[Rfam]
RNA sequence: GGAUGUGAGGGCGAUCUGGCUGCGACAUCUGUCACCCCAUUGAUCGCCAGAGUUGAUUCGGCUGAUCUGGCUGGCUAGGCGGGUGUCCCCUUCCUCCCUCACCGCUCCAUGUGCCUCCCUCCCGAAGCUGCGAAGCUGCACACUAGAGGAGGACCGUUCUUCGGUCAAGGGUAUAGGGUAUACGAGUAGCUGCGCUCCCCUGCUAGAACCUCCAAACAAGCUCUCAAGGUCCAUCUGUAGGAGAACGUAGGGUAGUCAAGCUUCCAAGACUCCAGACACAUCCAAAUGAGGCGCUGCACGUGGCAGUCGGCCUUUAAAA
Numbered sequence: 001g002g003a004u005g006u007g008a009g010g011g012c013g014a015u016c017u018g019g020c021u022g023c024g025a026c027a028u029c030u031g032u033c034a035c036c037c038c039a040u041u042g043a044u045c046g047c048c049a050g051a052g053u054u055g056a057u058u059c060g061g062c063u064g065a066u067c068u069g070g071c072u073g074g075c076u077a078g079g080c081g082g083g084u085g086u087c088c089c090c091u092u093c094c095u096c097c098c099u100c101a102c103c104g105c106u107c108c109a110u111g112u113g114c115c116u117c118c119c120u121c122c123c124g125a126a127g128c129u130g131c132g133a134a135g136c137u138g139c140a141c142a143c144u145a146g147a148g149g150a151g152g153a154c155c156g157u158u159c160u161u162c163g164g165u166c167a168a169g170g171g172u173a174u175a176g177g178g179u180a181u182a183c184g185a186g187u188a189g190c191u192g193c194g195c196u197c198c199c200c201u202g203c204u205a206g207a208a209c210c211u212c213c214a215a216a217c218a219a220g221c222u223c224u225c226a227a228g229g230u231c232c233a234u235c236u237g238u239a240g241g242a243g244a245a246c247g248u249a250g251g252g253u254a255g256u257c258a259a260g261c262u263u264c265c266a267a268g269a270c271u272c273c274a275g276a277c278a279c280a281u282c283c284a285a286a287u288g289a290g291g292c293g294c295u296g297c298a299c300g301u302g303g304c305a306g307u308c309g310g311c312c313u314u315u316a317a318a319a
Base pairs, nucleotide, nucleotide: 001108002107003106005102006101007100008099009098010097011096013093014092018090019089024087025086026085027084028083029082030081031080032079033078035074036073037070038069039068042067043066044065045064046062047061048060116152117151118149119148120147121146125137127136128135189261190260191259195255196254198252199251200250201249202248203247210243211242212241213240216238217237218236220234288314289313290312291311292310293307294306295305296304297303
7SK RNA: a 319-nucleotide RNA from Nyctereutes procyonoides. The family has 45 seed sequences and 49,373 matches in Rfam 15.1. The organism belongs to Nyctereutes, within Eukaryota. 7SK was discovered as an abundant small nuclear RNA in the mid-70s but a possible function has only recently been suggested. Two independent studies have found that 7SK RNA binds the CDK9/cyclin T complex (known as elongation factor P-TEFb). P-TEFb activates transcription by phosphorylating the C-terminal domain of RNA polymerase II. This process is negatively regulated by the 7SK RNP. The secondary structure of 7SK RNA shown here was proposed by Wasserman and Steitz on the basis of chemical modification and enzymatic cleavage experiments. This family contains a number of annotated pseudogenes and 7SK derived repeats. The threshold is artificially high to minimise the pseudogene count. The literature on the family includes a 2002 paper in Curr Biol by Blencowe, "Transcription: surprising role for an elusive small nuclear RNA". Pairs were carried over by alignment from the consensus structure, which is taken from published work. Its Rfam clan is "7SK clan".